The family of this 68-nucleotide RNA sequence from Lutibacter maritimus is "DUF805 RNA". It is annotated as a cis-regulatory element. Rfam 15.1 lists 281 matches to the family in 219 species.

Nucleotides: 068
Stems, first nucleotide, its partner, number of pairs: 006023004037053003044062002
Number, partner (000 for none) and nucleotide at each position: 001000a002000u003000a004000u005000a006023g007022u008021g009020g010000a011000g012000u013000c014000c015000a016000g017000a018000a019000c020009c021008c022007a023006c024000u025000c026000u027000u028000a029000a030000a031000a032000a033000a034000c035000g036000g037053g038052g039051u040000g041000a042000a043000a044062c045061c046000g047000a048000a049000a050000a051039a052038c053037c054000u055000u056000a057000a058000g059000u060000a061045g062044g063000a064000a065000a066000a067000u068000u

Clan: DUF805 clan.